A member of the RNA family "SAH (S-adenosyl-L-homocysteine) riboswitch aptamer" from Lysobacter sp., 124 nucleotides long. For this family Rfam cites "Riboswitches that sense S-adenosylhomocysteine and activate genes involved in coenzyme recycling" (Wang et al., Mol Cell, 2008). The family has 52 seed sequences and 1,354 matches in Rfam 15.1. Lineage of the source: Bacteria > Pseudomonadota > Gammaproteobacteria > Lysobacterales > Lysobacter. Pairs were carried over by alignment from the consensus structure, which is taken from published work.
[Rfam]
RNA sequence: UCCGCCGAGGGGCGCUGCGACCGGUUAUGCGGAUCCCUCCGCAAGAGCCCGCACAUUCAUGUGCGGACUUCCAAGAAAACCGGCCAGGCUCGGCGGAGUGCACGACGAACGGCGCCCGUUAAUG
Numbered sequence: 001u002c003c004g005c006c007g008a009g010g011g012g013c014g015c016u017g018c019g020a021c022c023g024g025u026u027a028u029g030c031g032g033a034u035c036c037c038u039c040c041g042c043a044a045g046a047g048c049c050c051g052c053a054c055a056u057u058c059a060u061g062u063g064c065g066g067a068c069u070u071c072c073a074a075g076a077a078a079a080c081c082g083g084c085c086a087g088g089c090u091c092g093g094c095g096g097a098g099u100g101c102a103c104g105a106c107g108a109a110c111g112g113c114g115c116c117c118g119u120u121a122a123u124g
Stems, first nucleotide, its partner, number of pairs: 002096007021083006